[Rfam]
RNA: Guanidine-I riboswitch aptamer
Organism: Aquabacter spiritensis
RNA sequence: AGAGUUGGUGGCUAGGGUUCCGGCAUCUUCCUGAAGAUGCGCUGGUCCGAGAGCUGCCGCCGGUCCGGGAGACAUCCGGCCGGGCGCACGGCGGGAUAAAAGCCCGGGAGAC
Numbered sequence: 001a002g003a004g005u006u007g008g009u010g011g012c013u014a015g016g017g018u019u020c021c022g023g024c025a026u027c028u029u030c031c032u033g034a035a036g037a038u039g040c041g042c043u044g045g046u047c048c049g050a051g052a053g054c055u056g057c058c059g060c061c062g063g064u065c066c067g068g069g070a071g072a073c074a075u076c077c078g079g080c081c082g083g084g085c086g087c088a089c090g091g092c093g094g095g096a097u098a099a100a101a102g103c104c105c106g107g108g109a110g111a112c
Stems, first nucleotide, its partner, number of pairs: 007058006015048002020045002022042001023040006059085003063081001065079004087107001089110001093105003